[Rfam]
RNA sequence: ACUGCUGAGCCAUCUCUCCAGCCCCCUUAUAAUUUUUUAAAAAAGAUUCAUUUAUUUGGGCUGGAGAGAUGGCUCAGCAGU
Number, nucleotide and partner (000 for none) at each position: 001a000002c080003u079004g078005c077006u076007g075008a074009g073010c072011c071012a070013u069014c068015u067016c066017u065018c064019c063020a062021g061022c060023c059024c058025c000026c000027u000028u000029a000030u000031a000032a000033u000034u000035u000036u000037u000038u000039a000040a000041a000042a000043a000044a000045g000046a000047u000048u000049c000050a000051u000052u000053u000054a000055u000056u000057u000058g024059g023060g022061c021062u020063g019064g018065a017066g016067a015068g014069a013070u012071g011072g010073c009074u008075c007076a006077g005078c004079a003080g002081u000
This 81-nucleotide sequence from Nannospalax galili belongs to the Rfam family "mir-3473 microRNA precursor family". Lineage of the source: Eukaryota > Metazoa > Euteleostomi > Mammalia > Nannospalax. The match comes from Rfam's covariance-model search (85 bits).